Record summary
This 159-nucleotide sequence from Deinococcus koreensis belongs to the Rfam family "FMN riboswitch aptamer (RFN element)". It scores 101 bits against the family's covariance model.
RNA sequence: CGCUUCCUUCGGGGCAGGGCGAAACUCCCUACCGGCGGUGAUGGCGCCCAGUUGCAGGUCGCCUCAGCCCGCGAAGCCCGCGCAAACUGAAGUACGCGCGGGCCCGACUCGGUGAGAUUCCGGGGCCGACGGUCACAGUCCGGAUGAGAGAAGGAGGAA
Numbered sequence: 001c002g003c004u005u006c007c008u009u010c011g012g013g014g015c016a017g018g019g020c021g022a023a024a025c026u027c028c029c030u031a032c033c034g035g036c037g038g039u040g041a042u043g044g045c046g047c048c049c050a051g052u053u054g055c056a057g058g059u060c061g062c063c064u065c066a067g068c069c070c071g072c073g074a075a076g077c078c079c080g081c082g083c084a085a086a087c088u089g090a091a092g093u094a095c096g097c098g099c100g101g102g103c104c105c106g107a108c109u110c111g112g113u114g115a116g117a118u119u120c121c122g123g124g125g126c127c128g129a130c131g132g133u134c135a136c137a138g139u140c141c142g143g144a145u146g147a148g149a150g151a152a153g154g155a156g157g158a159a
Stems, first nucleotide, its partner, number of pairs: 003157008017029003031139002033128002035072004067126002076103008108124005130142003